[Rfam]
This 172-nucleotide RNA sequence from Geobacillus sp. Y412MC52 belongs to the Rfam family "Group II catalytic intron D1-D4-3". From the family's description: Group II introns are found in rRNA, tRNA and mRNA of organelles in fungi, plants and protists, and also in mRNA in bacteria. Gene Ontology term of the family: Group II intron splicing.
RNA sequence: UCCACCGUGAGGUGGAAUCUGAAGGAAGCUGGAGGCAAACACUUGACCUGAGGUACACGAACCCAAUGGGAGGCCGCCACAGUCGGACGAGUCUGCUGGACAAGACGAAGUCCUAAGCCGCCAAGGGCUGUGGAGGUAGAUUGGGCAGGUGCAUGAGUGGAAAGUGUCCAUC
Numbered sequence: 001u002c003c004a005c006c007g008u009g010a011g012g013u014g015g016a017a018u019c020u021g022a023a024g025g026a027a028g029c030u031g032g033a034g035g036c037a038a039a040c041a042c043u044u045g046a047c048c049u050g051a052g053g054u055a056c057a058c059g060a061a062c063c064c065a066a067u068g069g070g071a072g073g074c075c076g077c078c079a080c081a082g083u084c085g086g087a088c089g090a091g092u093c094u095g096c097u098g099g100a101c102a103a104g105a106c107g108a109a110g111u112c113c114u115a116a117g118c119c120g121c122c123a124a125g126g127g128c129u130g131u132g133g134a135g136g137u138a139g140a141u142u143g144g145g146c147a148g149g150u151g152c153a154u155g156a157g158u159g160g161a162a163a164g165u166g167u168c169c170a171u172c
Stems, first nucleotide, its partner, number of pairs: 001016006028172001030170003035165002040159006046150005062145006073137003077133007085113004091106004